This 79-nucleotide RNA from Twortvirus twort belongs to the Rfam family "RAGATH-18 RNA".
It is annotated as a small RNA.
[Rfam]
RNA sequence: CCUUUGGAGUAUCAUACAAACUUGAGUAGAGUAAAUGAAUAUAGUAAUUUACUCAAAAGGGGAUACGUUGAAAAAGGAA
Numbered sequence: 001c002c003u004u005u006g007g008a009g010u011a012u013c014a015u016a017c018a019a020a021c022u023u024g025a026g027u028a029g030a031g032u033a034a035a036u037g038a039a040u041a042u043a044g045u046a047a048u049u050u051a052c053u054c055a056a057a058a059g060g061g062g063a064u065a066c067g068u069u070g071a072a073a074a075a076g077g078a079a
Base pairs, nucleotide, nucleotide: 001077002076003075004074005073009066010065011064012063013062021061022060023059029054030053031052034050035049

Record summary:
The base pairs follow the family's consensus structure, which is taken from published work. The organism belongs to Twortvirus twort, within Viruses.